[Rfam]
RNA sequence: CAGCAUGUCUUAUCAAGGGCUGUGGCUUGAAGUAGCCACGGGGUCUCCAACUGCAUGCAGAACAUGCUGGAAAGACUUUGACAGUGCGGGUCACCACAUGCCUGCAGCUGCCACUCAGCUUUCCUAUACUC
Number, nucleotide and partner (000 for none) at each position: 001c000002a000003g000004c000005a000006u000007g000008u000009c000010u000011u000012a000013u041014c040015a000016a000017g000018g037019g036020c035021u034022g033023u032024g000025g000026c000027u000028u000029g000030a000031a000032g023033u022034a021035g020036c019037c018038a000039c000040g014041g013042g000043g000044u000045c000046u000047c000048c000049a000050a000051c000052u000053g000054c000055a000056u000057g000058c000059a000060g000061a000062a000063c000064a000065u000066g000067c000068u000069g124070g123071a122072a121073a120074g119075a000076c000077u000078u000079u000080g000081a000082c000083a000084g111085u110086g000087c104088g103089g102090g101091u000092c000093a000094c000095c000096a000097c000098a000099u000100g000101c090102c089103u088104g087105c000106a000107g000108c000109u000110g085111c084112c000113a000114c000115u000116c000117a000118g000119c074120u073121u072122u071123c070124c069125u000126a000127u000128a000129c000130u000131c000

A member of the RNA family "Small nucleolar RNA SNORA44" from Phascolarctos cinereus, 131 nucleotides long. It scores 118 bits against the family's covariance model. By type it is an H/ACA-box small nucleolar RNA. About the family: ACA44 is a member of the H/ACA class of snoRNA that guide the sites of modification of uridines to pseudouridines. Its Rfam clan is "SNORA44 clan". NCBI's taxonomy places the organism under Eukaryota, Bilateria, Euteleostomi, Sarcopterygii, Phascolarctos. The family has 27 seed sequences and 1,056 matches in Rfam 15.1. Rfam links the family to the GO terms RNA processing and nucleolus.